[Rfam]
RNA sequence: UUGCAUGUAGAAAUGUUUACUCCUUUAUCCUUUGGGAAGAGUAAUACAUUCAAAACAUGCUAUAUUUAAAAAGGACUCCUCAGGGUGACCAACUUUAUGGUAGAGGUUGUUAGGUAAUAUAUUUCUCCUUCAUAA
Numbered sequence: 001u002u003g004c005a006u007g008u009a010g011a012a013a014u015g016u017u018u019a020c021u022c023c024u025u026u027a028u029c030c031u032u033u034g035g036g037a038a039g040a041g042u043a044a045u046a047c048a049u050u051c052a053a054a055a056c057a058u059g060c061u062a063u064a065u066u067u068a069a070a071a072a073g074g075a076c077u078c079c080u081c082a083g084g085g086u087g088a089c090c091a092a093c094u095u096u097a098u099g100g101u102a103g104a105g106g107u108u109g110u111u112a113g114g115u116a117a118u119a120u121a122u123u124u125c126u127c128c129u130u131c132a133u134a135a
Stems, first nucleotide, its partner, number of pairs: 003060006017041002021037003073128003085115002090109007

Shown here is a 135-nucleotide RNA sequence from Callithrix jacchus, a member of the family "Small nucleolar RNA U109". Taxonomically the source falls in Callithrix (Eukaryota, Amniota, Boreoeutheria, Simiiformes). A search with the family's covariance model found it, with a score of 97 bits. On this family, see Gu et al., Nucleic Acids Res 2005: "A novel experimental approach for systematic identification of box H/ACA snoRNAs from eukaryotes". Rfam 15.1 lists 1,405 matches to the family in 622 species. Pairs were carried over by alignment from the consensus structure, which was predicted with WAR.